[Rfam]
RNA sequence: UUUCUUGUCAUUGGGGAGUAGCCUCCUUCUGCAUUGAAGGGGAUGCGUCAACAAACUUGACCCGCAUUGGUCAUGGCGCAUCCGGCCUGUCGGCUUGGCGAGACCUUUGACAUGUACAUCUCCGUUUUCAAGGAUUGAGCGGGAGAGAUGUACGUGUCAUUGGUUUUUUCUCGCUCGAUCCGCCUU
Numbered sequence: 001u002u003u004c005u006u007g008u009c010a011u012u013g014g015g016g017a018g019u020a021g022c023c024u025c026c027u028u029c030u031g032c033a034u035u036g037a038a039g040g041g042g043a044u045g046c047g048u049c050a051a052c053a054a055a056c057u058u059g060a061c062c063c064g065c066a067u068u069g070g071u072c073a074u075g076g077c078g079c080a081u082c083c084g085g086c087c088u089g090u091c092g093g094c095u096u097g098g099c100g101a102g103a104c105c106u107u108u109g110a111c112a113u114g115u116a117c118a119u120c121u122c123c124g125u126u127u128u129c130a131a132g133g134a135u136u137g138a139g140c141g142g143g144a145g146a147g148a149u150g151u152a153c154g155u156g157u158c159a160u161u162g163g164u165u166u167u168u169u170c171u172c173g174c175u176c177g178a179u180c181c182g183c184c185u186u
Base pairs, nucleotide, nucleotide: 026039027038041083042082043081044080045079046078047077048076049075050074058073059072060071061070062069084185085184087182089180
RNA: Manganese Mn2+ riboswitch aptamer (yybP-ykoY)